RNA sequence: UAGCGAGACUCUGGAAAGUGUCGCUGCCCUCAUCGGGCAGAGGCCGCCGACGGUGUAACUUCGGGUUUGUCCUCAGGGGCGGGUCGAGGGAAGCUCUCAGGUUUCCGUGACAGAGGGGGCACC
Numbered sequence: 001u002a003g004c005g006a007g008a009c010u011c012u013g014g015a016a017a018g019u020g021u022c023g024c025u026g027c028c029c030u031c032a033u034c035g036g037g038c039a040g041a042g043g044c045c046g047c048c049g050a051c052g053g054u055g056u057a058a059c060u061u062c063g064g065g066u067u068u069g070u071c072c073u074c075a076g077g078g079g080c081g082g083g084u085c086g087a088g089g090g091a092a093g094c095u096c097u098c099a100g101g102u103u104u105c106c107g108u109g110a111c112a113g114a115g116g117g118g119g120c121a122c123c
Stems, first nucleotide, its partner, number of pairs: 009115005020044003046102003049098002053096001055094001059089006
RNA: Glycine riboswitch aptamer
Organism: Novosphingobium sp. ST904